[Rfam]
RNA sequence: AAAAUAAAGACCUCCUAACUUUAUUUAAUAAAAUCCUAAACUUUUUUCAUCACAAUCUCCUAAUGAAGCCACCCACAGGGGUGGCUUUUGC
Number, nucleotide and partner (000 for none) at each position: 001a000002a026003a025004a024005u023006a022007a021008a020009g019010a000011c000012c000013u000014c000015c000016u000017a000018a000019c009020u008021u007022u006023a005024u004025u003026u002027a000028a000029u000030a000031a000032a000033a000034u000035c000036c000037u000038a000039a000040a000041c000042u000043u000044u000045u000046u000047u000048c000049a000050u000051c000052a000053c000054a000055a000056u000057c000058u000059c000060c000061u000062a000063a000064u000065g088066a087067a086068g085069c084070c083071a082072c081073c080074c000075a000076c000077a000078g000079g000080g073081g072082u071083g070084g069085c068086u067087u066088u065089u000090g000091c000